Record summary:
This 112-nucleotide RNA from Flexibacter flexilis belongs to the Rfam family "SAM riboswitch aptamer (S box leader)". The organism belongs to Flexibacter flexilis, within Bacteria.

RNA sequence: AUCUUAUCAAGAAAAGCAGAGGGAUUUGGCCCGAUGAAGCUUUAGCAACCCACUUAACAAAAAAGUGAAGGUGCUAACUCCAACCCAGAAGAAAUUCUGGGAUAGAUAAGAG
Numbered sequence: 001a002u003c004u005u006a007u008c009a010a011g012a013a014a015a016g017c018a019g020a021g022g023g024a025u026u027u028g029g030c031c032c033g034a035u036g037a038a039g040c041u042u043u044a045g046c047a048a049c050c051c052a053c054u055u056a057a058c059a060a061a062a063a064a065g066u067g068a069a070g071g072u073g074c075u076a077a078c079u080c081c082a083a084c085c086c087a088g089a090a091g092a093a094a095u096u097c098u099g100g101g102a103u104a105g106a107u108a109a110g111a112g
Stems, first nucleotide, its partner, number of pairs: 002111007013043005021032003026083004044075004049071002051067004079104001084101006